RNA: SAM-I/IV (S-adenosyl methionine) riboswitch aptamer
RNA sequence: AAUAAUUAUCAAGAAUCUCAAAAAGGAGAUAGCAACCUGCAAUAACGAGCAAGGUGCUAAAUAGAUAAGCCAAUUACUUGGAACAAAUGUUAACUCA
Numbered sequence: 001a002a003u004a005a006u007u008a009u010c011a012a013g014a015a016u017c018u019c020a021a022a023a024a025g026g027a028g029a030u031a032g033c034a035a036c037c038u039g040c041a042a043u044a045a046c047g048a049g050c051a052a053g054g055u056g057c058u059a060a061a062u063a064g065a066u067a068a069g070c071c072a073a074u075u076a077c078u079u080g081g082a083a084c085a086a087a088u089g090u091u092a093a094c095u096c097a
Stems, first nucleotide, its partner, number of pairs: 006068005015030005031058003036054003039050002043093001045091001070081004